[Rfam]
RNA sequence: AGCUCGAUGAUUGUAUUAAACUAGUUGGCAAUAUACGCCAUUCUGACAUUGAAACGUUGACUUUAAAAUAUAAUGAGAGCC
Numbered sequence: 001a002g003c004u005c006g007a008u009g010a011u012u013g014u015a016u017u018a019a020a021c022u023a024g025u026u027g028g029c030a031a032u033a034u035a036c037g038c039c040a041u042u043c044u045g046a047c048a049u050u051g052a053a054a055c056g057u058u059g060a061c062u063u064u065a066a067a068a069u070a071u072a073a074u075g076a077g078a079g080c081c
Stems, first nucleotide, its partner, number of pairs: 002080004